[Rfam]
RNA: Glycine riboswitch aptamer
Organism: Rhodocyclaceae bacterium
RNA sequence: UUCAAGUCUGGAGAGCGAUGCGGGCGCCGACCGCGCCGGCGCAUCCACCGAAGGGGCACCCGGCGCUUUACGCUGGAAUCUCUCAGGUACAAGGGACAGAUGGGGCGAC
Numbered sequence: 001u002u003c004a005a006g007u008c009u010g011g012a013g014a015g016c017g018a019u020g021c022g023g024g025c026g027c028c029g030a031c032c033g034c035g036c037c038g039g040c041g042c043a044u045c046c047a048c049c050g051a052a053g054g055g056g057c058a059c060c061c062g063g064c065g066c067u068u069u070a071c072g073c074u075g076g077a078a079u080c081u082c083u084c085a086g087g088u089a090c091a092a093g094g095g096a097c098a099g100a101u102g103g104g105g106c107g108a109c
Base pairs, nucleotide, nucleotide: 003104006101007100008099009098010097017045018044019043020042021041022040047088048087049086050084051083054082055081056080060075